Shown here is a 118-nucleotide RNA from Moellerella wisconsensis, a member of the family "RprA RNA". Its family is annotated with mRNA binding in the Gene Ontology. It scores 71 bits against the family's covariance model. For this family Rfam cites "Regulation of RpoS by a novel small RNA: the characterization of RprA" (Majdalani et al., Mol Microbiol, 2001). Lineage of the source: Bacteria > Pseudomonadati > Gammaproteobacteria > Moellerella > Moellerella wisconsensis.

RNA sequence: GUGUUUAUAAAUUUAAGAUAGGGUCGGUAAUAUAAUCUAAAAUUUUAGAUACUAUCUGCUAAAAAAGAAUUGCUGUGUGUAGUCUUUGCCUGUCAGCCCAUGAUAGGCUUUUUUUUUA
Numbered sequence: 001g002u003g004u005u006u007a008u009a010a011a012u013u014u015a016a017g018a019u020a021g022g023g024u025c026g027g028u029a030a031u032a033u034a035a036u037c038u039a040a041a042a043u044u045u046u047a048g049a050u051a052c053u054a055u056c057u058g059c060u061a062a063a064a065a066a067g068a069a070u071u072g073c074u075g076u077g078u079g080u081a082g083u084c085u086u087u088g089c090c091u092g093u094c095a096g097c098c099c100a101u102g103a104u105a106g107g108c109u110u111u112u113u114u115u116u117u118a
Stems, first nucleotide, its partner, number of pairs: 002032004071079003088108007

Overview:
Translational regulation of the stationary phase sigma factor RpoS is mediated by the formation of a double-stranded RNA stem-loop structure in the upstream region of the rpoS messenger RNA, occluding the translation initiation site.